[Rfam]
Small nucleolar RNA SNORA56: a 126-nucleotide sequence from Odobenus rosmarus.
Clan: SNORA56 clan.
About the family: ACA56 is a member of the H/ACA class of snoRNA that guide the sites of modification of uridines to pseudouridines.
The match comes from Rfam's covariance-model search (81 bits).
Rfam links the family to the GO terms RNA processing and nucleolus.
The family has 17 seed sequences and 153 matches in Rfam 15.1.
Rfam classes the family as an H/ACA-box small nucleolar RNA.

RNA sequence: CAGCAAACAGUUAAUUCCUUCUGGUCCGGCUCGUGGGGACCUAGAGGGAGUCCGUCUGCCACUGUAAGUGGUGCGUCCUGUCCAGCGCCAGUGUUUUGCUGGAGACUUCGGAUUGGACACAUAUCG
Numbered sequence: 001c002a003g004c005a006a007a008c009a010g011u012u013a014a015u016u017c018c019u020u021c022u023g024g025u026c027c028g029g030c031u032c033g034u035g036g037g038g039a040c041c042u043a044g045a046g047g048g049a050g051u052c053c054g055u056c057u058g059c060c061a062c063u064g065u066a067a068g069u070g071g072u073g074c075g076u077c078c079u080g081u082c083c084a085g086c087g088c089c090a091g092u093g094u095u096u097u098g099c100u101g102g103a104g105a106c107u108u109c110g111g112a113u114u115g116g117a118c119a120c121a122u123a124u125c126g
Base pairs, nucleotide, nucleotide: 003059004058005057007055008054020045021044022043023042024041025038026037027036069119070118072116075113076112077111078110080106081105082104086101087100089098090097091096